[Rfam]
RNA sequence: GUGCAUCCAGUAGGAAUUGAACCUUGAGUUUGCUAAUUAUGAGUUGGGUGCUUUAACCAUUUAGUCAUAGAUGC
Number, nucleotide and partner (000 for none) at each position: 001g000002u000003g074004c073005a072006u071007c070008c000009a000010g025011u000012a024013g023014g022015a000016a000017u000018u000019g000020a000021a000022c014023c013024u012025u010026g000027a000028g000029u000030u000031u000032g000033c000034u000035a000036a000037u000038u000039a068040u067041g066042a000043g065044u064045u063046g062047g061048g060049u059050g058051c000052u000053u000054u000055a000056a000057c000058c050059a049060u048061u047062u046063a045064g044065u043066c041067a040068u039069a000070g007071a006072u005073g004074c003

Shown here is a 74-nucleotide RNA sequence from Vanilla planifolia, a member of the family "Plastid-ycf2 5UTR RNA". The base pairs follow the family's consensus structure, which was predicted with LocARNA. Rfam's curators write: Plastid ycf2 is a non-coding RNA (ncRNA) recognised in plastids. It was found in the prime untranslated region (5UTR) of ycf2 genes, it presents a tRNA-like motif which suggests it can be involved in mRNA maturation, particularly involved in defining the precise 5' end of the transcript. A search with the family's covariance model found it, with a score of 77 bits. By type it is a cis-regulatory element. On this family, see Richter et al., Plant Commun 2023: "Retrograde signaling in plants: A critical review focusing on the GUN pathway and beyond".